Rfam assigns this 110-nucleotide RNA from Glycine max to the family "MIR1520 microRNA precursor family". The family is grouped with related families in Rfam's "MIR1520 microRNA precursor clan". Gene Ontology terms of the family: RISC complex and miRNA-mediated post-transcriptional gene silencing.
RNA sequence: UCUUUAUUGGACGUUGACCGCCACGUGUCUUGCUUUUAUUAAACAUUAAUUUCAUGCUCAUAAUUAACGUCAACCUUCAAUAAAAGCACGACACGUAGUAGUCAAUGUCC
Dot-bracket structure: ...................((.(.((..(.(.((((.(((......................................))).)))).).)..)).).))...........
Numbered sequence: 001u002c003u004u005u006a007u008u009g010g011a012c013g014u015u016g017a018c019c020g021c022c023a024c025g026u027g028u029c030u031u032g033c034u035u036u037u038a039u040u041a042a043a044c045a046u047u048a049a050u051u052u053c054a055u056g057c058u059c060a061u062a063a064u065u066a067a068c069g070u071c072a073a074c075c076u077u078c079a080a081u082a083a084a085a086g087c088a089c090g091a092c093a094c095g096u097a098g099u100a101g102u103c104a105a106u107g108u109c110c
Stems, first nucleotide, its partner, number of pairs: 020099002023096001025094002029090001031088001033086004038081003